[Rfam]
RNA sequence: ACGCCUGAGGAGCGUUGCGACGGGGGGCCAUGGCGCCCGACAUACCCGCCAGGCUCAGGCCUCUGUUUGGCUGUCGCGCAUCGCGUGGCGGCAUGCAACGGCGCUCACCUUUG
Numbered sequence: 001a002c003g004c005c006u007g008a009g010g011a012g013c014g015u016u017g018c019g020a021c022g023g024g025g026g027g028c029c030a031u032g033g034c035g036c037c038c039g040a041c042a043u044a045c046c047c048g049c050c051a052g053g054c055u056c057a058g059g060c061c062u063c064u065g066u067u068u069g070g071c072u073g074u075c076g077c078g079c080a081u082c083g084c085g086u087g088g089c090g091g092c093a094u095g096c097a098a099c100g101g102c103g104c105u106c107a108c109c110u111u112u113g
Base pairs, nucleotide, nucleotide: 003060004059005058006057007056008055021048022047023046024045026043
RNA: SAH (S-adenosyl-L-homocysteine) riboswitch aptamer
Organism: Bordetella genomosp. 9